[Rfam]
eL15-Euryarchaeota ribosomal protein leader: a 58-nucleotide RNA sequence. It is annotated as a cis-regulatory leader.
RNA sequence: CCCGCACGGCACGCGCCACGGGUCGGGAUGUGAUCCGGAGGCCGGAUUGAACCAGGAA
Numbered sequence: 001c002c003c004g005c006a007c008g009g010c011a012c013g014c015g016c017c018a019c020g021g022g023u024c025g026g027g028a029u030g031u032g033a034u035c036c037g038g039a040g041g042c043c044g045g046a047u048u049g050a051a052c053c054a055g056g057a058a
Stems, first nucleotide, its partner, number of pairs: 001022004025053002032048005

Rfam's curators put it in the seed alignment.